[Rfam]
RNA: Small nucleolar RNA Z39
RNA sequence: GUACAUGUGAUGAUCAUUACAGUAUGAGGGACAACAAUGAUACUGUAAACGCUUUCUGAUGUA
Numbered sequence: 001g002u003a004c005a006u007g008u009g010a011u012g013a014u015c016a017u018u019a020c021a022g023u024a025u026g027a028g029g030g031a032c033a034a035c036a037a038u039g040a041u042a043c044u045g046u047a048a049a050c051g052c053u054u055u056c057u058g059a060u061g062u063a
Base pairs, nucleotide, nucleotide: 002063003062004061005060012055013054015051020045021044022043023042024041025040